[Rfam]
RNA sequence: GUUGCAAAUUUGAGGCCGCAGCAGAAGUGUUCACAGUGUGUCUGUGGCCUGUUAGAUUCACAUGAAACUGCAAAUUCUGCU
Numbered sequence: 001g002u003u004g005c006a007a008a009u010u011u012g013a014g015g016c017c018g019c020a021g022c023a024g025a026a027g028u029g030u031u032c033a034c035a036g037u038g039u040g041u042c043u044g045u046g047g048c049c050u051g052u053u054a055g056a057u058u059c060a061c062a063u064g065a066a067a068c069u070g071c072a073a074a075u076u077c078u079g080c081u
Stems, first nucleotide, its partner, number of pairs: 014049004020081007027045003053070003057066003